Background:
Rfam assigns this 134-nucleotide sequence from Slackia heliotrinireducens to the family "FMN riboswitch aptamer (RFN element)". The base pairs follow the family's consensus structure, which is taken from published work. The organism belongs to Slackia heliotrinireducens, within Bacteria. It scores 108 bits against the family's covariance model.

[Rfam]
Nucleotides: 134
Base pairs, nucleotide, nucleotide: 004131006129007128008127009126010125017029018028019027031114032113033103034102035061036060037059038058056101057100065078066077083099084098085097086096087095105117106116107115
Number, partner (000 for none) and nucleotide at each position: 001000a002000u003000g004131u005000c006129u007128g008127u009126u010125c011000a012000g013000g014000g015000c016000g017029a018028g019027g020000u021000g022000a023000a024000a025000u026000u027019c028018c029017u030000c031114a032113c033103u034102g035061g036060c037059g038058g039000u040000a041000a042000c043000g044000g045000g046000g047000a048000a049000a050000c051000c052000c053000g054000a055000a056101g057100u058038c059037c060036g061035c062000g063000a064000c065078c066077c067000u068000c069000u070000u071000a072000a073000c074000g075000g076000a077066g078065g079000c080000u081000g082000a083099u084098u085097c086096g087095g088000u089000g090000c091000a092000a093000g094000u095087c096086c097085g098084a099083a100057a101056c102034c103033a104000a105117c106116g107115g108000u109000u110000a111000c112000a113032g114031u115107c116106c117105g118000g119000a120000u121000g122000g123000a124000a125010g126009a127008a128007c129006a130000c131004g132000a133000u134000g